Rfam assigns this 197-nucleotide RNA sequence from Agrilus planipennis to the family "R2 RNA element".
Taxonomically the source falls in Agrilus (Eukaryota, Arthropoda, Pterygota, Elateriformia).
The family's RNA type in Rfam is cis-regulatory element.
Rfam's curators write: This family represents the 3' UTR region of the R2 retrotransposable element.
The family has 15 seed sequences and 3,698 matches in Rfam 15.1.

[Rfam]
RNA sequence: GAUUACUGUUCGCAAAUAGUUAAGGAUGUGGGUUGUUCUGGUUUUAGCGUCUGAAGAGGACCCUAGUUGGUCCUAAAACGGCCUGAGGUACAGGGGUUUUAGUCGGUAGGUCCGAGGACUUCUUCCUCGGGAAUCCGACACUACCCAGUCGUACGGACGGCUGGGUGUCUUUUGAAGAUUUCCCCUCUUCCACGAAA
Numbered sequence: 001g002a003u004u005a006c007u008g009u010u011c012g013c014a015a016a017u018a019g020u021u022a023a024g025g026a027u028g029u030g031g032g033u034u035g036u037u038c039u040g041g042u043u044u045u046a047g048c049g050u051c052u053g054a055a056g057a058g059g060a061c062c063c064u065a066g067u068u069g070g071u072c073c074u075a076a077a078a079c080g081g082c083c084u085g086a087g088g089u090a091c092a093g094g095g096g097u098u099u100u101a102g103u104c105g106g107u108a109g110g111u112c113c114g115a116g117g118a119c120u121u122c123u124u125c126c127u128c129g130g131g132a133a134u135c136c137g138a139c140a141c142u143a144c145c146c147a148g149u150c151g152u153a154c155g156g157a158c159g160g161c162u163g164g165g166u167g168u169c170u171u172u173u174g175a176a177g178a179u180u181u182c183c184c185c186u187c188u189u190c191c192a193c194g195a196a197a
Stems, first nucleotide, its partner, number of pairs: 035061005067196002070193002085190004094184003102139005111131008141167001143166005